[Rfam]
RNA sequence: ACUCAACGAGUAUACAAUUAAAAAAGGUGAGUACAAGUGUUAAAGCAUGCUAUCUAGAAUAGAUCCUUGAUCAUUUGAUUAGCCUUAAUCCUGUUUAAAAGGAGUUU
Numbered sequence: 001a002c003u004c005a006a007c008g009a010g011u012a013u014a015c016a017a018u019u020a021a022a023a024a025a026g027g028u029g030a031g032u033a034c035a036a037g038u039g040u041u042a043a044a045g046c047a048u049g050c051u052a053u054c055u056a057g058a059a060u061a062g063a064u065c066c067u068u069g070a071u072c073a074u075u076u077g078a079u080u081a082g083c084c085u086u087a088a089u090c091c092u093g094u095u096u097a098a099a100a101g102g103a104g105u106u107u
Stems, first nucleotide, its partner, number of pairs: 024086005034077005043068003050062004
RNA: 6S-Flavo RNA